The record is a 77-nucleotide RNA from Pontibacillus marinus, which matches "Glycine riboswitch aptamer" in Rfam.
About the family: This family represents the bacterial glycine riboswitch. Glycine riboswitches usually consist of two metabolite-binding aptamers domains with similar structures in tandem. The aptamers cooperatively bind glycine to regulate the expression of downstream genes.
The base pairs follow the family's consensus structure.
[Rfam]
RNA sequence: GGAGCACAUUCUGGAGAGACUACAUUUUGUAGCGCCGAAGGGUUCACAAUCUCAGGCAAAUGGACAGAAUCGUUGUA
Numbered sequence: 001g002g003a004g005c006a007c008a009u010u011c012u013g014g015a016g017a018g019a020c021u022a023c024a025u026u027u028u029g030u031a032g033c034g035c036c037g038a039a040g041g042g043u044u045c046a047c048a049a050u051c052u053c054a055g056g057c058a059a060a061u062g063g064a065c066a067g068a069a070u071c072g073u074u075g076u077a
Stems, first nucleotide, its partner, number of pairs: 008070006020032004034057003037053002041051003
Taxonomically the source falls in Pontibacillus marinus (Bacteria, Bacillota, Bacilli, Caryophanales).